The family of this 132-nucleotide sequence from Cyclopterus lumpus is "Small nucleolar RNA SNORA14". From the family's description: ACA14 is a member of the H/ACA class of snoRNA that guide the sites of modification of uridines to pseudouridines. It scores 44 bits against the family's covariance model. Pairs were carried over by alignment from the consensus structure, which was predicted with RNAfold.
[Rfam]
RNA sequence: GAGCAUCCUUUAUAAACCCCCUGGAUGCCAUUUGUGGUCUCUGGGACAAGAAAGGGUGCAAGAUCAACCUUAGAAUCCAAAGCCAAGAGCCUUGUGUCAGUAGCUCUGGGUUAUUUCACCUCUAAGACAAAC
Numbered sequence: 001g002a003g004c005a006u007c008c009u010u011u012a013u014a015a016a017c018c019c020c021c022u023g024g025a026u027g028c029c030a031u032u033u034g035u036g037g038u039c040u041c042u043g044g045g046a047c048a049a050g051a052a053a054g055g056g057u058g059c060a061a062g063a064u065c066a067a068c069c070u071u072a073g074a075a076u077c078c079a080a081a082g083c084c085a086a087g088a089g090c091c092u093u094g095u096g097u098c099a100g101u102a103g104c105u106c107u108g109g110g111u112u113a114u115u116u117c118a119c120c121u122c123u124a125a126g127a128c129a130a131a132c
Stems, first nucleotide, its partner, number of pairs: 003059004009051003021045002024042001027039001029037001064131001069126006081112004086107002089104002095100001